[Rfam]
RNA: Bacterial RNase P class A
Organism: Allomeiothermus silvanus
RNA sequence: CGGGAAGGGGGCGCGGUCGCGGGCGGUGGCCUAUAACCAGGCCGACCGCCUGAGGAAAGUCCGGGCUCCACAGGGCAGGGUGCCAGCUAACGGCUGGGCGGGGUAACCCGACGGAAAGUGCAACAGAGAGCAGACCGCCGAUGGCCUCUUCAGGCUCAGGCAAGGGUGAAACGGUGGAGUAAGAGCCCACCAGUGCUGAUGGAGACAUCGGCAGCUAGGUAAACCCCACCCGGUGCAAGGCUAGCCCGCGCAAGCGGGUAAGGUAGGGAGGGCUUGCCCGGCCCGUACCUGCGAGAAACAGCCGCUCGAGGUCGGUGGCGACACCGAUCCCAGAUAGAUGACCGCUAGUGACGCGCCAGCGUCACCAUACAGAACCCGGCUUAUACCCCUUCCCGGCAA
Numbered sequence: 001c002g003g004g005a006a007g008g009g010g011g012c013g014c015g016g017u018c019g020c021g022g023g024c025g026g027u028g029g030c031c032u033a034u035a036a037c038c039a040g041g042c043c044g045a046c047c048g049c050c051u052g053a054g055g056a057a058a059g060u061c062c063g064g065g066c067u068c069c070a071c072a073g074g075g076c077a078g079g080g081u082g083c084c085a086g087c088u089a090a091c092g093g094c095u096g097g098g099c100g101g102g103g104u105a106a107c108c109c110g111a112c113g114g115a116a117a118g119u120g121c122a123a124c125a126g127a128g129a130g131c132a133g134a135c136c137g138c139c140g141a142u143g144g145c146c147u148c149u150u151c152a153g154g155c156u157c158a159g160g161c162a163a164g165g166g167u168g169a170a171a172c173g174g175u176g177g178a179g180u181a182a183g184a185g186c187c188c189a190c191c192a193g194u195g196c197u198g199a200u201g202g203a204g205a206c207a208u209c210g211g212c213a214g215c216u217a218g219g220u221a222a223a224c225c226c227c228a229c230c231c232g233g234u235g236c237a238a239g240g241c242u243a244g245c246c247c248g249c250g251c252a253a254g255c256g257g258g259u260a261a262g263g264u265a266g267g268g269a270g271g272g273c274u275u276g277c278c279c280g281g282c283c284c285g286u287a288c289c290u291g292c293g294a295g296a297a298a299c300a301g302c303c304g305c306u307c308g309a310g311g312u313c314g315g316u317g318g319c320g321a322c323a324c325c326g327a328u329c330c331c332a333g334a335u336a337g338a339u340g341a342c343c344g345c346u347a348g349u350g351a352c353g354c355g356c357c358a359g360c361g362u363c364a365c366c367a368u369a370c371a372g373a374a375c376c377c378g379g380c381u382u383a384u385a386c387c388c389c390u391u392c393c394c395g396g397c398a399a
Base pairs, nucleotide, nucleotide: 001395002394003393004392005391006390007389008388009387010386011384013345014344015343016342017341018340020052021051022050023049024048025047026046027045057382058381059380061379062378063377064376065375066235068233069232073279074278075277076276078231079230080229081228082227083097084096085095086094087093098112099110100109101108102107113226114225118224119223120220121219135165136164137161138160139159142158143157144155145154146153147152173191174190175189176188177187193215194213195212196211197210198209199208200207201206239303240302241301242300254292255291256290257289258288259287270284271283272282273281274280310329311328312327313326314325315324316323317322